Shown here is a 91-nucleotide RNA sequence from Azospirillum thermophilum, a member of the family "Repression of heat shock gene expression (ROSE) element". The literature on the family includes a 2004 paper in J Bacteriol by Balsiger et al., "Replicon-specific regulation of small heat shock genes in Agrobacterium tumefaciens". About the family: This family represents a 5' UTR cis-regulatory element found in heat shock mRNAs and is known as the ROSE (repression of heat shock gene expression) element. The ROSE element is a negative regulator of heat shock gene expression. The family's RNA type in Rfam is RNA thermoregulator. It scores 59 bits against the family's covariance model.
RNA sequence: CCGGGCGCCUGGAAGGGGUCUGGCCGACCGAGCGCCACGCCGUGGCGCGCUCGUAUCCAUGUUGCUCAUGAGGAGGAUGUGGCUAUGGGCA
Numbered sequence: 001c002c003g004g005g006c007g008c009c010u011g012g013a014a015g016g017g018g019u020c021u022g023g024c025c026g027a028c029c030g031a032g033c034g035c036c037a038c039g040c041c042g043u044g045g046c047g048c049g050c051u052c053g054u055a056u057c058c059a060u061g062u063u064g065c066u067c068a069u070g071a072g073g074a075g076g077a078u079g080u081g082g083c084u085a086u087g088g089g090c091a
Stems, first nucleotide, its partner, number of pairs: 001023006008017002032048007050089006057082007065075003